This 561-nucleotide part of an RNA from Mitosporidium daphniae belongs to the Rfam family "Eukaryotic large subunit ribosomal RNA". Its family is annotated with ribosome and structural constituent of ribosome in the Gene Ontology. A search with the family's covariance model found it, with a score of 3158 bits.

Nucleotides: 561
Stems, first nucleotide, its partner, number of pairs: 001527004010521007018513003035059005044049001060284002063281006069273005075262009084222003088218001090216002097211003101206002105202006113194005119188001121186003125182002285289001297506007304498002308322003325361008336348004365492003369423003374420002376416004381412001384411003392403004424442006443447001463479005540557005
Number, partner (000 for none) and nucleotide at each position: 001527u002526a003525g004524a005000a006000c007000a008000a009000u010521g011520u012519a013518g014517g015516u016515a017000a018513g019512g020511g021000a022000a023000g024000u025000c026000g027000g028000c029000a030000a031000a032000a033000u034000a035059g036058a037057u038056c039055c040000g041000u042000a043000a044049c045000u046000u047000u048000g049044g050000g051000a052000a053000a054000a055039g056038g057037a058036u059035u060284g061283g062000c063281u064280c065279u066278a067277a068276g069273g070272g071271u072270u073269g074000a075262g076261c077260c078259a079258g080257c081256u082255g083254g084222g085221c086220c087000g088218g089000u090216g091215u092000g093000g094000a095000g096000c097211g098210c099209c100000a101206g102205g103000c104000c105202g106201u107200g108199u109198g110197c111000u112000u113194g114193c115192g116191u117190g118000u119188g120000u121186u122185c123184c124000g125182g126181g127000a128000a129000g130000c131000u132000g133000c134000a135000g136000a137000c138000a139000a140000g141000a142000c143000a144000u145000c146000g147000g148000g149000a150000u151000g152000c153000a154000a155000a156000u157000c158000u159000c160000g161000g162000g163000g164000u165000u166000u167000u168000g169000u170000c171000u172000g173000c174000g175000g176000c177000c178000g179000c180000a181126c182125c183000g184123g185122g186121g187000u188119c189000c190117u191116g192115c193114g194113c195000u196000u197110g198109u199108g200107c201106a202105c203000a204000c205102c206101u207000g208000g209099g210098g211097c212000g213000a214000u215091g216090c217000u218088c219000c220086g221085g222084c223000g224000g225000u226000g227000c228000a229000u230000g231000u232000g233000u234000c235000c236000u237000c238000g239000g240000a241000c242000g243000c244000g245000g246000c247000a248000u249000c250000c251000c252000c253000g254083c255082c256081g257080g258079c259078u260077g261076g262075c263000g264000a265000g266000u267000a268000a269073c270072a271071a272070c273069c274000a275000a276068c277067u278066u279065a280064g281063a282000a283061c284060u285289g286000g287000a288000a289285c290000g291000g292000a293000c294000a295000a296000g297506g298505g299504g300503a301502a302501u303500c304498u305497g306000a307000c308322u309321g310320u311000c312000u313000a314000a315000u316000u317000a318000a319000a320310a321309c322308a323000u324000a325361g326360c327359a328358u329357u330356g331355c332354g333000a334000u335000g336348g337347c338346c339345u340000g341000a342000a343000a344000a345339a346338g347337g348336u349000g350000u351000u352000g353000a354332c355331g356330c357329a358328a359327u360326g361325u362000g363000a364000u365492u366491u367490c368000u369423g370422c371421c372000c373000a374420g375419u376416g377415c378414u379413c380000u381412g382000a383000a384411u385410g386409u387000c388000a389000a390000a391000g392403u393402g394401a395400a396000g397000a398000a399000a400395u401394u402393c403392a404000a405000c406000c407000a408000a409386g410385c411384g412381c413379g414378g415377g416376u417000a418000a419375a420374c421371g422370g423369c424442g425441g426440g427439a428438g429437u430000a431000a432000c433000u434000a435000u436000g437429a438428c439427u440426c441425u442424c443447u444000u445000a446000a447443g448000g449000u450000a451000g452000c453000c454000a455000a456000a457000u458000g459000c460000c461000u462000c463479g464478u465477c466476a467475u468000c469000u470000a471000a472000u473000u474000a475467g476466u477465g478464a479463c480000g481000c482000g483000c484000a485000u486000g487000a488000a489000u490367g491366g492365a493000u494000u495000a496000a497305c498304g499000a500303g501302a502301u503300u504299c505298c506297c507000a508000c509000u510000g511020u512019c513018c514000c515016u516015a517014u518013c519012u520011a521010c522000u523000a524004u525003c526002u527001a528000g529000c530000g531000a532000a533000a534000c535000c536000a537000c538000a539000g540557c541556c542555a543554a544553g545000g546000g547000a548000a549000c550000g551000g552000g553544c554543u555542u556541g557540g558000c559000a560000g561000a